The record is a 90-nucleotide sequence from Camphora micrantha, which matches "Small nucleolar RNA snoR31/Z110/Z27" in Rfam.
The source organism's lineage runs through Eukaryota, Viridiplantae, Streptophytina, Magnoliidae and Camphora.
Its family is annotated with RNA processing and nucleolus in the Gene Ontology.
From the family's description: This family contains several related snoRNAs including R31, Z27 and Z110.
The match comes from Rfam's covariance-model search (62 bits).
A reference for the family is Barneche et al. (2001), "Identification of 66 box C/D snoRNAs in Arabidopsis thaliana: extensive gene duplications generated multiple isoforms predicting new ribosomal RNA 2'-O-methylation sites", J Mol Biol.

RNA sequence: UUCAUCAGGUGAUGAGAAUGAUAAAAUCUUAGGACACCUUCUGACACAGCCAAGCUGUGUAUGAGAAAGAUUUUCGGUUCUGAUGAUGAU
Numbered sequence: 001u002u003c004a005u006c007a008g009g010u011g012a013u014g015a016g017a018a019u020g021a022u023a024a025a026a027u028c029u030u031a032g033g034a035c036a037c038c039u040u041c042u043g044a045c046a047c048a049g050c051c052a053a054g055c056u057g058u059g060u061a062u063g064a065g066a067a068a069g070a071u072u073u074u075c076g077g078u079u080c081u082g083a084u085g086a087u088g089a090u
Stems, first nucleotide, its partner, number of pairs: 002089006042048002